Small nucleolar RNA snoR145: a 153-nucleotide RNA sequence from Nicotiana tabacum. By type it is an H/ACA-box small nucleolar RNA. The organism belongs to Nicotiana, within Eukaryota. A search with the family's covariance model found it, with a score of 99 bits.
RNA sequence: AAACGAAGGUUCCCAGCGGAGAGGGUCGAAACUCUAGAACGAGACCUCUCUAACACAAUAAAACAAUACCUUCGCAGAUUGAGCAUUUGCCGAAUCGUAGGAAGUUCCAAAUUGCUUCGUUUUGGUGCUUCUUGAACCCUCGGCUAAAUUUAU
Numbered sequence: 001a002a003a004c005g006a007a008g009g010u011u012c013c014c015a016g017c018g019g020a021g022a023g024g025g026u027c028g029a030a031a032c033u034c035u036a037g038a039a040c041g042a043g044a045c046c047u048c049u050c051u052a053a054c055a056c057a058a059u060a061a062a063a064c065a066a067u068a069c070c071u072u073c074g075c076a077g078a079u080u081g082a083g084c085a086u087u088u089g090c091c092g093a094a095u096c097g098u099a100g101g102a103a104g105u106u107c108c109a110a111a112u113u114g115c116u117u118c119g120u121u122u123u124g125g126u127g128c129u130u131c132u133u134g135a136a137c138c139c140u141c142g143g144c145u146a147a148a149u150u151u152a153u
Base pairs, nucleotide, nucleotide: 004074005073006072007071008070009069012021014019023050024049025048032043033042034041089144090143091142092141093140101131102130104128105127107125108124109123110122111121